The record is a 101-nucleotide RNA from Domatiomyces catenatus, which matches "Small nucleolar RNA Z13/snr52" in Rfam. Rfam 15.1 lists 1,203 matches to the family in 866 species. Gene Ontology terms of the family: RNA processing and nucleolus. The base pairs follow the family's consensus structure, which was predicted with PFOLD.
[Rfam]
RNA sequence: UGCUCUCUUAUGAUGAACCAUUACGGAUGUAAAUCACAGACCUGUGCUGAAGCGCAAAACCAUGUGGAUAUUUUCCGUUGCCUUCCUUCUGACUAAAGAGC
Numbered sequence: 001u002g003c004u005c006u007c008u009u010a011u012g013a014u015g016a017a018c019c020a021u022u023a024c025g026g027a028u029g030u031a032a033a034u035c036a037c038a039g040a041c042c043u044g045u046g047c048u049g050a051a052g053c054g055c056a057a058a059a060c061c062a063u064g065u066g067g068a069u070a071u072u073u074u075c076c077g078u079u080g081c082c083u084u085c086c087u088u089c090u091g092a093c094u095a096a097a098g099a100g101c
Base pairs, nucleotide, nucleotide: 003100004099005098024077025076026075027074